Annotation
Rfam assigns this 72-nucleotide RNA sequence from Orthoflavivirus modocense to the family "Flavivirus DB element". The source organism's lineage runs through Viruses, Orthornavirae, Kitrinoviricota, Amarillovirales and Orthoflavivirus modocense. It is one of the family's seed sequences. The base pairs follow the family's consensus structure, which is taken from published work. It is annotated as a cis-regulatory element. This family represents the flavivirus 3' UTR elements DB1 and DB2. The literature on the family includes a 2005 paper in J Virol by Chiu et al., "Control of translation by the 5'- and 3'-terminal regions of the dengue virus genome".

RNA sequence: CCGGGCCCAACCCAGCUAGGGAUAGCCUUUCUGGGGUAAGGACUAGAGGUUAGUGGAGACCCCCGGCUUUUG
Numbered sequence: 001c002c003g004g005g006c007c008c009a010a011c012c013c014a015g016c017u018a019g020g021g022a023u024a025g026c027c028u029u030u031c032u033g034g035g036g037u038a039a040g041g042a043c044u045a046g047a048g049g050u051u052a053g054u055g056g057a058g059a060c061c062c063c064c065g066g067c068u069u070u071u072g
Base pairs, nucleotide, nucleotide: 001066002065003064004063005062006041007040011035012034013033014032015031018028048061049060050059051058